[Rfam]
RNA: Glycine riboswitch aptamer
Organism: Anaeromicrobium sediminis
RNA sequence: AUGAUGAUAGUGGGAGAAGGCAUAUGCCGCCGAAGAAGUGAAACUUUCAGGUGUUUUUUUAAACAGGACCAUUAUCGGACG
Numbered sequence: 001a002u003g004a005u006g007a008u009a010g011u012g013g014g015a016g017a018a019g020g021c022a023u024a025u026g027c028c029g030c031c032g033a034a035g036a037a038g039u040g041a042a043a044c045u046u047u048c049a050g051g052u053g054u055u056u057u058u059u060u061a062a063a064c065a066g067g068a069c070c071a072u073u074a075u076c077g078g079a080c081g
Stems, first nucleotide, its partner, number of pairs: 006076008020027002029052003032048002036046003